[Rfam]
RNA sequence: GCUCCAUGAAAGACAUGGGUAGUGAGAUGUACACUGUCUCUAAUCACCUUGCUAUCAUGUCUUUCCAUGGAGA
Numbered sequence: 001g002c003u004c005c006a007u008g009a010a011a012g013a014c015a016u017g018g019g020u021a022g023u024g025a026g027a028u029g030u031a032c033a034c035u036g037u038c039u040c041u042a043a044u045c046a047c048c049u050u051g052c053u054a055u056c057a058u059g060u061c062u063u064u065c066c067a068u069g070g071a072g073a
Base pairs, nucleotide, nucleotide: 008065009064010063011062012061013060014059015058018056019055021053022052023051024050025049026048028046029045
The family of this 73-nucleotide sequence from Capitella teleta is "mir-71 microRNA precursor family". The organism belongs to Capitella, within Eukaryota. A reference for the family is Yu et al. (2008), "The silkworm (Bombyx mori) microRNAs and their expressions in multiple developmental stages", PLoS One. The sequence is in the family's curated seed alignment.